[Rfam]
RNA sequence: AGCAAAGUGAGGAGAUUAUAUGAUCUGAAGUAUCUAAUGUGGAUACAACCAUACAUGGUCUUCAAAGUUCUCUGAUUGUU
Number, nucleotide and partner (000 for none) at each position: 001a080002g079003c078004a077005a076006a000007g000008u000009g000010a000011g000012g000013a000014g000015a000016u000017u000018a000019u000020a000021u000022g000023a000024u000025c000026u000027g000028a000029a000030g000031u000032a000033u000034c000035u000036a000037a000038u000039g000040u000041g000042g000043a000044u000045a000046c000047a000048a000049c000050c000051a000052u000053a000054c000055a000056u000057g000058g000059u000060c000061u000062u000063c000064a000065a000066a000067g000068u000069u000070c000071u000072c000073u000074g000075a000076u005077u004078g003079u002080u001
The record is an 80-nucleotide RNA sequence from Triticum aestivum, which matches "Small nucleolar RNA R160" in Rfam. Rfam 15.1 lists 799 matches to the family in 221 species. For this family Rfam cites "The high diversity of snoRNAs in plants: identification and comparative study of 120 snoRNA genes from Oryza sativa" (Chen et al., Nucleic Acids Res, 2003). The match comes from Rfam's covariance-model search (90 bits). Gene Ontology terms of the family: RNA processing and nucleolus. The source organism's lineage runs through Eukaryota, Euphyllophyta, Petrosaviidae, Poaceae and Triticum. Rfam's curators write: snoR160 is a C/D box small nucleolar RNA, which acts as a methylation guide for 25S ribosomal RNA in plants. snoR160 has been alternatively named snoZ270 in rice.